[Rfam]
RNA sequence: CAAAUUUGUCCUAAGUCAAACUUUUAUAACUUUGACCAAGUUUUAGAAAAAUAUGUUCACAUGUACAAGUUCAAAUAAAUGCACUAUCAAGACAUAUUUCAUAGAGAAUUUAGUGAAACUAGUUUGAUAUUGUAGAUGUUGAUGCAAUUUUCUAUAAACUUGGAGAAACCUAGAGAAGUUUGACUUAGGACAAAGCUAA
Dot-bracket structure: ....(((((.(((((((((((((((.....(((..........((((((.((.(((..((((.((((...((((((.............................................))))))...)))).))))..)))..))))))))...........))).....))))))))))))))).))))).....
Source information: The record is a 199-nucleotide RNA sequence from Miscanthus lutarioriparius, which matches "MIR1435 microRNA precursor family" in Rfam. Rfam 15.1 lists 1,765 matches to the family in 31 species. A search with the family's covariance model found it, with a score of 120 bits. Its family is annotated with RISC complex and miRNA-mediated post-transcriptional gene silencing in the Gene Ontology.